[Rfam]
RNA sequence: UUGUGCUGAGGAGCGCUGCAGCGGCUAAACGCCGUGAGGCUCGGGCAAGUGGAUGAUGAUAUAACGGCGCUCUUUCAUU
Numbered sequence: 001u002u003g004u005g006c007u008g009a010g011g012a013g014c015g016c017u018g019c020a021g022c023g024g025c026u027a028a029a030c031g032c033c034g035u036g037a038g039g040c041u042c043g044g045g046c047a048a049g050u051g052g053a054u055g056a057u058g059a060u061a062u063a064a065c066g067g068c069g070c071u072c073u074u075u076c077a078u079u
Stems, first nucleotide, its partner, number of pairs: 002047003006044004022034004